The record is a 131-nucleotide RNA from Cricetulus griseus, which matches "Small nucleolar RNA SNORA3/SNORA45 family" in Rfam. About the family: The members of this family belong to the H/ACA class of snoRNAs which are thought to guide the sites of modification of uridines to pseudouridines. The family's consensus secondary structure was predicted with RNAalifold. It is annotated as an H/ACA-box small nucleolar RNA.
[Rfam]
RNA sequence: GCCGAGACUAGAGUCACAUCCUGACAUGGUGCUUGUCCCGGUGUGCUAGAGUUCUCGGAGAUUAUCUGCUGGUCUUCAUUCACUAGUAGGGGCCUUCAGUGUCCCUGUUAGUGCCUAGAUCAGAAACAGGU
Number, nucleotide and partner (000 for none) at each position: 001g000002c058003c057004g056005a055006g054007a052008c051009u050010a000011g000012a047013g046014u000015c045016a044017c043018a042019u041020c040021c000022u000023g037024a036025c035026a034027u000028g000029g000030u000031g000032c000033u000034u026035g025036u024037c023038c000039c000040g020041g019042u018043g017044u016045g015046c013047u012048a000049g000050a009051g008052u007053u000054c006055u005056c004057g003058g002059a000060g000061a000062u000063u000064a000065u000066c000067u000068g000069c123070u122071g121072g120073u119074c118075u117076u000077c000078a000079u000080u000081c113082a112083c111084u110085a109086g108087u000088a106089g105090g104091g103092g102093c101094c000095u000096u000097c000098a000099g000100u000101g093102u092103c091104c090105c089106u088107g000108u086109u085110a084111g083112u082113g081114c000115c000116u000117a075118g074119a073120u072121c071122a070123g069124a000125a000126a000127c000128a000129g000130g000131u000